[Rfam]
RNA sequence: AUAUGACACAGUUCAACGGUUGCCGGUCUGGCACCUACACUUGGUCGUGGAGCAAUGAC
Numbered sequence: 001a002u003a004u005g006a007c008a009c010a011g012u013u014c015a016a017c018g019g020u021u022g023c024c025g026g027u028c029u030g031g032c033a034c035c036u037a038c039a040c041u042u043g044g045u046c047g048u049g050g051a052g053c054a055a056u057g058a059c
Base pairs, nucleotide, nucleotide: 007049008048009047011045012044013043015042016041018035019034021033022032023031024030025029
RNA: Selenocysteine insertion sequence 3
Organism: Pseudoneobacillus rhizosphaerae